[Rfam]
The record is a 135-nucleotide sequence, which matches "RAGATH-19 RNA" in Rfam. By type it is a small RNA.
RNA sequence: UUGUUGCGUAUUGUUUCUACUCUAAAAGUAAAGAAAGCAGAUACGUACUCUUGCCUGAAACGAGAUAAAAAGAAGAAUUUGAGCGUGUCUGCUCGCUGCUACACCUAGGGAGGAUAGCAGUCCAAAAUGGUAAUC
Numbered sequence: 001u002u003g004u005u006g007c008g009u010a011u012u013g014u015u016u017c018u019a020c021u022c023u024a025a026a027a028g029u030a031a032a033g034a035a036a037g038c039a040g041a042u043a044c045g046u047a048c049u050c051u052u053g054c055c056u057g058a059a060a061c062g063a064g065a066u067a068a069a070a071a072g073a074a075g076a077a078u079u080u081g082a083g084c085g086u087g088u089c090u091g092c093u094c095g096c097u098g099c100u101a102c103a104c105c106u107a108g109g110g111a112g113g114a115u116a117g118c119a120g121u122c123c124a125a126a127a128u129g130g131u132a133a134u135c
Stems, first nucleotide, its partner, number of pairs: 006046005011040006017033002049065005081094005096120006105113002